[Rfam]
RNA sequence: CCAAAGGCUCUUUUCAGAGCCACUCAUGUUUUCCUAUAAACAGUUG
Numbered sequence: 001c002c003a004a005a006g007g008c009u010c011u012u013u014u015c016a017g018a019g020c021c022a023c024u025c026a027u028g029u030u031u032u033c034c035u036a037u038a039a040a041c042a043g044u045u046g
Stems, first nucleotide, its partner, number of pairs: 006021006
Dot-bracket structure: .....((((((....)))))).........................
RNA: Histone 3' UTR stem-loop
Organism: Phyllostomus discolor